[Rfam]
RNA sequence: UGGCUACAAAAUAACUUAUUUUAUAGUCACUUUGAGUUAUGAUAAUUACUAUAUUAAUUUACGAGAUUAUAGUAAAUUCUUACUAAGUGGUUUACUGUAACGUUAUGGUAAAUGUCCACAUGUGUUAUAGUAACCCGACUAUCGUAAAUAUGUAUUGACAUUAUCGUAAAUUAGUAUAUACAAUUAUUGUAAAUGGAGGUGGCUACAGAAUAACUUAUUUUGUAGUGG
Numbered sequence: 001u002g003g004c005u006a007c008a009a010a011a012u013a014a015c016u017u018a019u020u021u022u023a024u025a026g027u028c029a030c031u032u033u034g035a036g037u038u039a040u041g042a043u044a045a046u047u048a049c050u051a052u053a054u055u056a057a058u059u060u061a062c063g064a065g066a067u068u069a070u071a072g073u074a075a076a077u078u079c080u081u082a083c084u085a086a087g088u089g090g091u092u093u094a095c096u097g098u099a100a101c102g103u104u105a106u107g108g109u110a111a112a113u114g115u116c117c118a119c120a121u122g123u124g125u126u127a128u129a130g131u132a133a134c135c136c137g138a139c140u141a142u143c144g145u146a147a148a149u150a151u152g153u154a155u156u157g158a159c160a161u162u163a164u165c166g167u168a169a170a171u172u173a174g175u176a177u178a179u180a181c182a183a184u185u186a187u188u189g190u191a192a193a194u195g196g197a198g199g200u201g202g203c204u205a206c207a208g209a210a211u212a213a214c215u216u217a218u219u220u221u222g223u224a225g226u227g228g
Stems, first nucleotide, its partner, number of pairs: 001228001003226012016213007024205010037192011050178013065165003069161002074155001080147004087142006093132011107117002
RNA: MIR6217 microRNA precursor family
Organism: Miscanthus lutarioriparius